[Rfam]
RNA: Guanidine-II riboswitch aptamer (mini-ykkC)
Organism: Galemys pyrenaicus
RNA sequence: CGCCGGGGACGGCCCCCACCGUGUCCCCAGAACGCGGGGACGGCCCCG
Numbered sequence: 001c002g003c004c005g006g007g008g009a010c011g012g013c014c015c016c017c018a019c020c021g022u023g024u025c026c027c028c029a030g031a032a033c034g035c036g037g038g039g040a041c042g043g044c045c046c047c048g
Stems, first nucleotide, its partner, number of pairs: 002019001005016004035048005